This 171-nucleotide RNA from Prevotella sp. CAG:755 belongs to the Rfam family "Bacteroidales-1 6S-Bacteroidales RNA suggested". Pairs were carried over by alignment from the consensus structure, which is taken from published work. Bacteroidales-1 was first reported in a comparative genomics-based approach of genome and metagenome sequences from Weinberg et al. 2010 In a high-resolution transcriptome map study of Bacteroides thetaiotaomicron, Ryan et al. 2020 report this sRNA as 6S RNA homologue of Bacteroides, in the study they obtain evidence of small product RNAs (pRNAs) related to 6S function.
Nucleotides: 171
Base pairs, nucleotide, nucleotide: 055116056115057114059113060112061111062110063109065107066106069103070102076097077096078095079094084093085092086091
Number, partner (000 for none) and nucleotide at each position: 001000g002000g003000c004000u005000g006000c007000a008000u009000c010000g011000g012000u013000u014000a015000g016000a017000u018000c019000g020000g021000g022000a023000u024000a025000c026000u027000c028000a029000u030000c031000a032000a033000u034000a035000a036000u037000a038000a039000c040000g041000g042000a043000a044000a045000u046000a047000c048000c049000g050000a051000g052000a053000a054000a055116g056115c057114u058000a059113c060112u061111c062110c063109g064000c065107u066106c067000a068000a069103u070102g071000g072000c073000g074000g075000g076097c077096c078095g079094a080000c081000a082000c083000a084093c085092u086091c087000g088000u089000u090000g091086g092085a093084g094079u095078c096077g097076g098000a099000u100000u101000a102070c103069a104000g105000a106066g107065a108000u109063c110062g111061g112060a113059g114057g115056g116055c117000a118000c119000u120000c121000a122000a123000a124000u125000c126000u127000u128000a129000u130000u131000u132000u133000a134000g135000c136000u137000c138000g139000g140000a141000g142000u143000u144000u145000c146000a147000u148000c149000a150000c151000a152000u153000c154000a155000c156000c157000g158000g159000u160000g161000u162000a163000g164000c165000c166000u167000u168000c169000u170000u171000u